[Rfam]
RNA sequence: UACAAUAAUCCCAUCAAGCAGAAAAGUGGACGAACUGCUUGCAACAUCGGGCACUUUUCUAUUUGAUGGGUAAACAGUCAUAAGCACGCAGGACGAUAGUCCGGAGUGCGCAUGGCUGGCACGAUUUCGAGAGUUCGAAGAACGAAGAAAUCGUGAUUAUUGUA
Numbered sequence: 001u002a003c004a005a006u007a008a009u010c011c012c013a014u015c016a017a018g019c020a021g022a023a024a025a026g027u028g029g030a031c032g033a034a035c036u037g038c039u040u041g042c043a044a045c046a047u048c049g050g051g052c053a054c055u056u057u058u059c060u061a062u063u064u065g066a067u068g069g070g071u072a073a074a075c076a077g078u079c080a081u082a083a084g085c086a087c088g089c090a091g092g093a094c095g096a097u098a099g100u101c102c103g104g105a106g107u108g109c110g111c112a113u114g115g116c117u118g119g120c121a122c123g124a125u126u127u128c129g130a131g132a133g134u135u136c137g138a139a140g141a142a143c144g145a146a147g148a149a150a151u152c153g154u155g156a157u158u159a160u161u162g163u164a
Stems, first nucleotide, its partner, number of pairs: 001164007011069004017063002020060009031049002036043002075118007084109004091102004122153007133143004
Shown here is a 164-nucleotide sequence from Coprococcus eutactus, a member of the family "Clostridiales-1 RNA". The family has 194 seed sequences and 1,172 matches in Rfam 15.1. The organism belongs to Coprococcus eutactus, within Bacteria. Rfam's curators put it in the seed alignment.